[Rfam]
A member of the RNA family "Guanidine-I riboswitch aptamer" from Ensifer fredii, 108 nucleotides long.
Lineage of the source: Bacteria > Pseudomonadota > Hyphomicrobiales > Rhizobiaceae > Ensifer fredii.

RNA sequence: UGCAGAUGUUUCUAGGGUUCCGAUGCCGUCAGGGCAUGUCUGGACCGAGAGAAACCUCCGGUGGGGAGACAUCCACCGGGUCCACGGCGGGAUAAAAGCCCGGGAGGC
Numbered sequence: 001u002g003c004a005g006a007u008g009u010u011u012c013u014a015g016g017g018u019u020c021c022g023a024u025g026c027c028g029u030c031a032g033g034g035c036a037u038g039u040c041u042g043g044a045c046c047g048a049g050a051g052a053a054a055c056c057u058c059c060g061g062u063g064g065g066g067a068g069a070c071a072u073c074c075a076c077c078g079g080g081u082c083c084a085c086g087g088c089g090g091g092a093u094a095a096a097a098g099c100c101c102g103g104g105a106g107g108c
Base pairs, nucleotide, nucleotide: 008055009054010053011052012051015046016045020043021042022040023037024036025035026034027033057080058079059078060077061076062075063074064073083103085106089101090100091099

Record summary:
This family represents a conserved RNA structure found upstream of the ykkC and yxkD genes in Bacillus subtilis and related genes in other bacteria.